[Rfam]
RNA: Small nucleolar RNA SNORD115
RNA sequence: GGGUUAAUGAAAAUACCUAAAUGUGUCUUGAUGAGAGAUGAUGACAUAAAAAUCAUGCUCAAUAGGAUUAUGCAGAGGCCC
Numbered sequence: 001g002g003g004u005u006a007a008u009g010a011a012a013a014u015a016c017c018u019a020a021a022u023g024u025g026u027c028u029u030g031a032u033g034a035g036a037g038a039u040g041a042u043g044a045c046a047u048a049a050a051a052a053u054c055a056u057g058c059u060c061a062a063u064a065g066g067a068u069u070a071u072g073c074a075g076a077g078g079c080c081c
Stems, first nucleotide, its partner, number of pairs: 001081004005075001008072002